[Rfam]
RNA sequence: CAAGAAGCUGUAAUCCUGAUGAACAAAACAUGUCUUUCGUUGAUGUCAGUGAAAUCAUAGUGAGUCAUGGUUAUUGGGUGAACUUCUUUAAAUCAUUUUAUUAACAGAAAGUUCAGUAAACGAUGAUACAUUA
Dot-bracket structure: ...(....((..................))....)............................(((((.(((......(((((((.......................)))))))...))).)))))......
RNA: Small nucleolar RNA snoR74